[Rfam]
RNA: U1 spliceosomal RNA
RNA sequence: AUACUUACCUGGACGGGGUCAAUGGGCGAUCGAAAAGGCCUAUGGCCUAGAACAGUAACUUCCAUUGCACUUAGGAAGGGUGCUGCUCUAAGGUCUGCCCAAGUGGCAGAGCCUACGUCAUAAUUUGUGGUAGCGGAGGCUUGCGUUCGCGCAGCCCCUCC
Numbered sequence: 001a002u003a004c005u006u007a008c009c010u011g012g013a014c015g016g017g018g019u020c021a022a023u024g025g026g027c028g029a030u031c032g033a034a035a036a037g038g039c040c041u042a043u044g045g046c047c048u049a050g051a052a053c054a055g056u057a058a059c060u061u062c063c064a065u066u067g068c069a070c071u072u073a074g075g076a077a078g079g080g081u082g083c084u085g086c087u088c089u090a091a092g093g094u095c096u097g098c099c100c101a102a103g104u105g106g107c108a109g110a111g112c113c114u115a116c117g118u119c120a121u122a123a124u125u126u127g128u129g130g131u132a133g134c135g136g137a138g139g140c141u142u143g144c145g146u147u148c149g150c151g152c153a154g155c156c157c158c159u160c161c
Base pairs, nucleotide, nucleotide: 012119013118014117015116016048017047018046019045020044021043023042024041025040026039027038049089050088051087055083056082057081059079060078061077062075063074091114092113093112094110095109096108098106099105135160136159138157139156142153143152144151145150